[Rfam]
RNA: mir-344 microRNA precursor family
RNA sequence: UGAUCAGUUAGGCUUCUGGCUAUAUUCCAGGAAUUAUCUGGUUCUGGGUAUAACCAAAGCCAGACUGAAUG
Numbered sequence: 001u002g003a004u005c006a007g008u009u010a011g012g013c014u015u016c017u018g019g020c021u022a023u024a025u026u027c028c029a030g031g032a033a034u035u036a037u038c039u040g041g042u043u044c045u046g047g048g049u050a051u052a053a054c055c056a057a058a059g060c061c062a063g064a065c066u067g068a069a070u071g
Base pairs, nucleotide, nucleotide: 007065008064009063011061012060013059014058017056018055019054021052022051023050024049027041028040029039030038031037